[Rfam]
RNA: Mammalian CPEB3 ribozyme
Organism: Alligator mississippiensis
RNA sequence: GGUUGGAAGUUUGAGGCCAUAGCAGAAACACUUAUGGAGUGGCCCUGUCAGAUUCUAAUGAACCUGUGACUCCUGCU
Numbered sequence: 001g002g003u004u005g006g007a008a009g010u011u012u013g014a015g016g017c018c019a020u021a022g023c024a025g026a027a028a029c030a031c032u033u034a035u036g037g038a039g040u041g042g043c044c045c046u047g048u049c050a051g052a053u054u055c056u057a058a059u060g061a062a063c064c065u066g067u068g069a070c071u072c073c074u075g076c077u
Stems, first nucleotide, its partner, number of pairs: 013045001015044004021077005027071001028040002049066003053062003